[Rfam]
RNA: Small nucleolar RNA SNORD109A
RNA sequence: GGGUCAGGGAAGAGCACGGUUGUGUGAGGAUGCCAAGGGACUAGUUCUACACGUCAUUCUGAGGUCC
Numbered sequence: 001g002g003g004u005c006a007g008g009g010a011a012g013a014g015c016a017c018g019g020u021u022g023u024g025u026g027a028g029g030a031u032g033c034c035a036a037g038g039g040a041c042u043a044g045u046u047c048u049a050c051a052c053g054u055c056a057u058u059c060u061g062a063g064g065u066c067c
Stems, first nucleotide, its partner, number of pairs: 001067005